[Rfam]
RNA: Fungal signal recognition particle RNA
Organism: Fusarium duplospermum
RNA sequence: GACUGUAAUGGUCCAACGGCGAAGACGUUCAAACACGCUCAUCUUCCCAUCCCAAUUCUAUCACCUUACGGUGUUAGACCCCCGCCGCGCCCCGUCCGAACGCCGCGGCGGCCGCCCACUCGUGCAGGAAACUCACGAUGCUGGUAACCCCUUGGCGGUCCUGAGCGCUGGAGAUGACCCUUGAGGGAGGCUUCACUCUGCAGAGAUCUCUCCCCCGUCGCGUGGCGGGUGGGAACACGCUUGUGCGGGGGGGUUUGGGUUGGAUGAGGAUGAGAUGGGAUAGUCAACGCUUUCUU
Numbered sequence: 001g002a003c004u005g006u007a008a009u010g011g012u013c014c015a016a017c018g019g020c021g022a023a024g025a026c027g028u029u030c031a032a033a034c035a036c037g038c039u040c041a042u043c044u045u046c047c048c049a050u051c052c053c054a055a056u057u058c059u060a061u062c063a064c065c066u067u068a069c070g071g072u073g074u075u076a077g078a079c080c081c082c083c084g085c086c087g088c089g090c091c092c093c094g095u096c097c098g099a100a101c102g103c104c105g106c107g108g109c110g111g112c113c114g115c116c117c118a119c120u121c122g123u124g125c126a127g128g129a130a131a132c133u134c135a136c137g138a139u140g141c142u143g144g145u146a147a148c149c150c151c152u153u154g155g156c157g158g159u160c161c162u163g164a165g166c167g168c169u170g171g172a173g174a175u176g177a178c179c180c181u182u183g184a185g186g187g188a189g190g191c192u193u194c195a196c197u198c199u200g201c202a203g204a205g206a207u208c209u210c211u212c213c214c215c216c217g218u219c220g221c222g223u224g225g226c227g228g229g230u231g232g233g234a235a236c237a238c239g240c241u242u243g244u245g246c247g248g249g250g251g252g253g254u255u256u257g258g259g260u261u262g263g264a265u266g267a268g269g270a271u272g273a274g275a276u277g278g279g280a281u282a283g284u285c286a287a288c289g290c291u292u293u294c295u296u
Stems, first nucleotide, its partner, number of pairs: 001013003016293001018291004024285003029280002034278001038274003044270003048266005054260001056258001059076002062073004081249002084246002087240003091233008100223004105218004110149002114145003117140002120138005126133002161165001170213005180205003187198003